[Rfam]
RNA sequence: GCAAAAAACAUCAUUGAGUGCAGCGUUGAUGAAAUCCUCUGAUCCCUUCCCUUAGCUGGCAGCACACCGUGUGUUUGCUGGCUGGCCGGAUGAUUUCACAGCGCUGCAUUCAAUUAUGUUUCUU
Numbered sequence: 001g002c003a004a005a006a007a008a009c010a011u012c013a014u015u016g017a018g019u020g021c022a023g024c025g026u027u028g029a030u031g032a033a034a035u036c037c038u039c040u041g042a043u044c045c046c047u048u049c050c051c052u053u054a055g056c057u058g059g060c061a062g063c064a065c066a067c068c069g070u071g072u073g074u075u076u077g078c079u080g081g082c083u084g085g086c087c088g089g090a091u092g093a094u095u096u097c098a099c100a101g102c103g104c105u106g107c108a109u110u111c112a113a114u115u116a117u118g119u120u121u122c123u124u
Stems, first nucleotide, its partner, number of pairs: 006121006013114016030098007

Shown here is a 124-nucleotide sequence from Carnegiea gigantea, a member of the family "MIR397 microRNA precursor family". It scores 71 bits against the family's covariance model. Its family is annotated with RISC complex and miRNA-mediated post-transcriptional gene silencing in the Gene Ontology.